[Rfam]
permuted transfer-messenger RNA: a 212-nucleotide sequence from an Alcaligenaceae bacterium. For this family Rfam cites "BRUCE: a program for the detection of transfer-messenger RNA genes in nucleotide sequences" (Laslett et al., Nucleic Acids Res, 2002). Rfam's curators put it in the seed alignment. Its family is annotated with RNA catabolic process in the Gene Ontology. The source organism's lineage runs through Bacteria, Pseudomonadati, Pseudomonadota, Betaproteobacteria and Alcaligenaceae. Rfam classes the family as a non-coding RNA gene.
RNA sequence: AGCUGUAUAUCUGGUUAACUGAAAGUUUUCUGGACGCGGGUUCAACUCCCGCCGUCUCCACCAAUAGGGUAUUGGUGAGUCAGUAUCUUAUUGAUGGGGACGCCAUGGUUUCGACAGGGAAAAAUAGGGAAAUUGGCAGCCGGUAGGCGAUGACCGUAAAUCAAGCAAAACUUCUAAAUGCAAACGACGAAAGUUACGCAUUAGCCGCCUAA
Numbered sequence: 001a002g003c004u005g006u007a008u009a010u011c012u013g014g015u016u017a018a019c020u021g022a023a024a025g026u027u028u029u030c031u032g033g034a035c036g037c038g039g040g041u042u043c044a045a046c047u048c049c050c051g052c053c054g055u056c057u058c059c060a061c062c063a064a065u066a067g068g069g070u071a072u073u074g075g076u077g078a079g080u081c082a083g084u085a086u087c088u089u090a091u092u093g094a095u096g097g098g099g100a101c102g103c104c105a106u107g108g109u110u111u112c113g114a115c116a117g118g119g120a121a122a123a124a125u126a127g128g129g130a131a132a133u134u135g136g137c138a139g140c141c142g143g144u145a146g147g148c149g150a151u152g153a154c155c156g157u158a159a160a161u162c163a164a165g166c167a168a169a170a171c172u173u174c175u176a177a178a179u180g181c182a183a184a185c186g187a188c189g190a191a192a193g194u195u196a197c198g199c200a201u202u203a204g205c206c207g208c209c210u211a212a
Stems, first nucleotide, its partner, number of pairs: 002140004015130002026120003030117003036052005053102007141156004